[Rfam]
Shown here is a 135-nucleotide RNA from Streptococcus ictaluri, a member of the family "Ribosomal protein L10 leader". This family is a putative r-protein leader autoregulatory structure found in B. subtilis and other low-GC Gram-positive bacteria. It is located in the 5' untranslated regions of mRNAs encoding ribosomal proteins L10 and L12 (rplJ-rplL). A Rho-independent transcription terminator structure that is probably involved in regulation is included at the 3' end. Its family is annotated with regulation of gene expression in the Gene Ontology. A search with the family's covariance model found it, with a score of 94 bits. It is annotated as a cis-regulatory leader.
RNA sequence: GGUUUUGAAAAAAACUGACCUAAGACAGUAGGGGAGCAUUGCUCAUAAUAUUCCUACCGAGGCACAAAACGUCAUUAAAGAAAUAACGUAUUGUACUUUCGUGUCUAGGUUUAGGUGCGUUUUUUUUUGUACCUA
Numbered sequence: 001g002g003u004u005u006u007g008a009a010a011a012a013a014a015c016u017g018a019c020c021u022a023a024g025a026c027a028g029u030a031g032g033g034g035a036g037c038a039u040u041g042c043u044c045a046u047a048a049u050a051u052u053c054c055u056a057c058c059g060a061g062g063c064a065c066a067a068a069a070c071g072u073c074a075u076u077a078a079a080g081a082a083a084u085a086a087c088g089u090a091u092u093g094u095a096c097u098u099u100c101g102u103g104u105c106u107a108g109g110u111u112u113a114g115g116u117g118c119g120u121u122u123u124u125u126u127u128u129g130u131a132c133c134u135a
Stems, first nucleotide, its partner, number of pairs: 028057006034044003100119008